[Rfam]
RNA: Eukaryotic small subunit ribosomal RNA, nucleotides 1624 to 1792
Organism: Acanthochromis polyacanthus
RNA sequence: CCGCCUGUCGCUACUACUGAUUGAAUGGUUUAGUGAGGUCCUCGGAUCGGCCCCGCCGGGGUCGGUCACGGCCCUGGUGCAGUGCCAAGAAGACGAUCAAACUUGACUAUCUAAAGGAAGUAAAAGUCGUAACAAGGUUUCUGUAGGUGAACCUGCAGAAGGAUCAUUA
Numbered sequence: 001c002c003g004c005c006u007g008u009c010g011c012u013a014c015u016a017c018u019g020a021u022u023g024a025a026u027g028g029u030u031u032a033g034u035g036a037g038g039u040c041c042u043c044g045g046a047u048c049g050g051c052c053c054c055g056c057c058g059g060g061g062u063c064g065g066u067c068a069c070g071g072c073c074c075u076g077g078u079g080c081a082g083u084g085c086c087a088a089g090a091a092g093a094c095g096a097u098c099a100a101a102c103u104u105g106a107c108u109a110u111c112u113a114a115a116g117g118a119a120g121u122a123a124a125a126g127u128c129g130u131a132a133c134a135a136g137g138u139u140u141c142u143g144u145a146g147g148u149g150a151a152c153c154u155g156c157a158g159a160a161g162g163a164u165c166a167u168u169a
Base pairs, nucleotide, nucleotide: 001136003133006129007128009126012122013121014120015119017117018116021113023112025110026109027108028107029106030105032103033102034101037098038097039096040095042093043092047088049086050085051084053082055080056079057076058074059073060072138161139160140159141158142157143156144155145154146153147152